[Rfam]
RNA: Singlet oxygen resistance RNA X
Organism: Phaeobacter gallaeciensis
RNA sequence: AUCCCGCGCAUAUCCGGGUCAUGAUAUGCACCUCCCUGUUGGACUGGGCCGGGCCUUGCGCCCGGCCUUUUUU
Numbered sequence: 001a002u003c004c005c006g007c008g009c010a011u012a013u014c015c016g017g018g019u020c021a022u023g024a025u026a027u028g029c030a031c032c033u034c035c036c037u038g039u040u041g042g043a044c045u046g047g048g049c050c051g052g053g054c055c056u057u058g059c060g061c062c063c064g065g066c067c068u069u070u071u072u073u
Base pairs, nucleotide, nucleotide: 008029009028010027011026012025013024014023047067048066049065050064051063052062053061054060